[Rfam]
RNA sequence: AUUCACUUUUGAACCGAACUCGCACAUAAUACGCCCCCGGUUUGCACACCGGGAAUCCAGGAGAGUUCAUGUAC
Numbered sequence: 001a002u003u004c005a006c007u008u009u010u011g012a013a014c015c016g017a018a019c020u021c022g023c024a025c026a027u028a029a030u031a032c033g034c035c036c037c038c039g040g041u042u043u044g045c046a047c048a049c050c051g052g053g054a055a056u057c058c059a060g061g062a063g064a065g066u067u068c069a070u071g072u073a074c
Stems, first nucleotide, its partner, number of pairs: 036053006

PyrD leader: a 74-nucleotide sequence from Escherichia fergusonii. Rfam's curators put it in the seed alignment. NCBI's taxonomy places the organism under Bacteria, Gammaproteobacteria, Enterobacteriaceae, Escherichia, Escherichia fergusonii. A reference for the family is Sorensen (1994), "Conformational heterogeneity in the Salmonella typhimurium pyrC and pyrD leader mRNAs produced in vivo", Nucleic Acids Res.